[Rfam]
RNA sequence: GCCGGGACUCGUGGCGGGGUCCUGUAAUCCAGCUUCCUGGAGGCUUGGUUGAGGAACGGCUUGCAGUGGGGAGUUCUGUUGCGGGUCUUCCCAUGUUGAGUGGGUGUCCGCAUUAAGCUCGGCAUCAAUAUGGGAACCCGUGGGUAGCCAUGGGUUACCAGGUUGUCUAAGGAGGUGUGUAACGGGCCAGGGGGGUAACCCAGCAGCCAAAAGCACCCGUGUUGAGCAGUAAUGGGAUCGCGCCCGUGAGUGGGUGGUUCGUAACAGCCUCGCAUGUACAGAGGAACCUCAACCUUU
Numbered sequence: 001g002c003c004g005g006g007a008c009u010c011g012u013g014g015c016g017g018g019g020u021c022c023u024g025u026a027a028u029c030c031a032g033c034u035u036c037c038u039g040g041a042g043g044c045u046u047g048g049u050u051g052a053g054g055a056a057c058g059g060c061u062u063g064c065a066g067u068g069g070g071g072a073g074u075u076c077u078g079u080u081g082c083g084g085g086u087c088u089u090c091c092c093a094u095g096u097u098g099a100g101u102g103g104g105u106g107u108c109c110g111c112a113u114u115a116a117g118c119u120c121g122g123c124a125u126c127a128a129u130a131u132g133g134g135a136a137c138c139c140g141u142g143g144g145u146a147g148c149c150a151u152g153g154g155u156u157a158c159c160a161g162g163u164u165g166u167c168u169a170a171g172g173a174g175g176u177g178u179g180u181a182a183c184g185g186g187c188c189a190g191g192g193g194g195g196u197a198a199c200c201c202a203g204c205a206g207c208c209a210a211a212a213g214c215a216c217c218c219g220u221g222u223u224g225a226g227c228a229g230u231a232a233u234g235g236g237a238u239c240g241c242g243c244c245c246g247u248g249a250g251u252g253g254g255u256g257g258u259u260c261g262u263a264a265c266a267g268c269c270u271c272g273c274a275u276g277u278a279c280a281g282a283g284g285a286a287c288c289u290c291a292a293c294c295u296u297u
Base pairs, nucleotide, nucleotide: 001044002043003042004023005022006021007020008019009018010017028041029040030039047294048293049292050291051290052289053288054287057284060281061280066273067272068271069270070269071268076267077266078265079264080263081262082261083260084259085258086257087256090254091253092252093251094250096248100247101246102245103244104243105242106241107240108236109235111234112233113232114231115230117227118226119225120224121223122222123221124220125219126165127164128163129162131160132159133158135156136155137154138153139152140151141150142149143148166172167171174217175216176215177214178213185208186207187206192201193200194199
Notes: Metazoan signal recognition particle RNA: a 297-nucleotide RNA from Hyalella azteca. Its Rfam clan is "SRP clan". From the family's description: The signal recognition particle (SRP) is a universally conserved ribonucleoprotein. It is involved in the co-translational targeting of proteins to membranes. By type it is a non-coding RNA gene. The match comes from Rfam's covariance-model search (248 bits). The source organism's lineage runs through Eukaryota, Metazoa, Mandibulata, Communostraca and Hyalella.